A member of the RNA family "U2 spliceosomal RNA" from Scytalidium lignicola, 194 nucleotides long. A search with the family's covariance model found it, with a score of 156 bits. The family's consensus secondary structure is taken from published work. NCBI's taxonomy places the organism under Eukaryota, Pezizomycotina, leotiomyceta, Leotiomycetes, Scytalidium. Its Rfam clan is "U2 clan".
[Rfam]
RNA sequence: UUAGCUCUCUUUGCCAAUUGGCUUAGAUCAAGUGUAGUAUCUGUUCUUUUCAGUUUAAUCUCUGAAAUCGUCACACUGUGGCGUAUCAAUGAUUAUACUUAUUUUUGUCACUCGAGAUCGAUCCUCUGUGCUUGCGCAUGGUCGAUCUCACAGUGUCCCUGGUAUUACACUGUCUCCAGGCGAUGCGAACCCUU
Numbered sequence: 001u002u003a004g005c006u007c008u009c010u011u012u013g014c015c016a017a018u019u020g021g022c023u024u025a026g027a028u029c030a031a032g033u034g035u036a037g038u039a040u041c042u043g044u045u046c047u048u049u050u051c052a053g054u055u056u057a058a059u060c061u062c063u064g065a066a067a068u069c070g071u072c073a074c075a076c077u078g079u080g081g082c083g084u085a086u087c088a089a090u091g092a093u094u095a096u097a098c099u100u101a102u103u104u105u106u107g108u109c110a111c112u113c114g115a116g117a118u119c120g121a122u123c124c125u126c127u128g129u130g131c132u133u134g135c136g137c138a139u140g141g142u143c144g145a146u147c148u149c150a151c152a153g154u155g156u157c158c159c160u161g162g163u164a165u166u167a168c169a170c171u172g173u174c175u176c177c178a179g180g181c182g183a184u185g186c187g188a189a190c191c192c193u194u
Stems, first nucleotide, its partner, number of pairs: 008027003013022003048067006069083006114149008127138004153186005158180005